[Rfam]
This 139-nucleotide RNA sequence from Sinocyclocheilus anshuiensis belongs to the Rfam family "Small nucleolar RNA SNORA29".
RNA sequence: CUUCCUGUUUUAGUACCACCCUUCUGCUUCCUCACAAGGUGUGUGGCUAUGCUAACAGGAUAGAGGAACUGUCUGUCAAGAUCUGAAGGGGUGGAUGGCCACACCUCCACCUCUAUAUGAAUUGGCAGUACAUCUAUAU
Numbered sequence: 001c002u003u004c005c006u007g008u009u010u011u012a013g014u015a016c017c018a019c020c021c022u023u024c025u026g027c028u029u030c031c032u033c034a035c036a037a038g039g040u041g042u043g044u045g046g047c048u049a050u051g052c053u054a055a056c057a058g059g060a061u062a063g064a065g066g067a068a069c070u071g072u073c074u075g076u077c078a079a080g081a082u083c084u085g086a087a088g089g090g091g092u093g094g095a096u097g098g099c100c101a102c103a104c105c106u107c108c109a110c111c112u113c114u115a116u117a118u119g120a121a122u123u124g125g126c127a128g129u130a131c132a133u134c135u136a137u138a139u
Stems, first nucleotide, its partner, number of pairs: 004059004016046004075126004093114003
NCBI's taxonomy places the organism under Eukaryota, Gnathostomata, Neopterygii, Ostariophysi, Sinocyclocheilus. Clan: SNORA20 clan. From the family's description: ACA29 is a member of the H/ACA class of snoRNA that guide the sites of modification of uridines to pseudouridines. A search with the family's covariance model found it, with a score of 72 bits. It is annotated as an H/ACA-box small nucleolar RNA.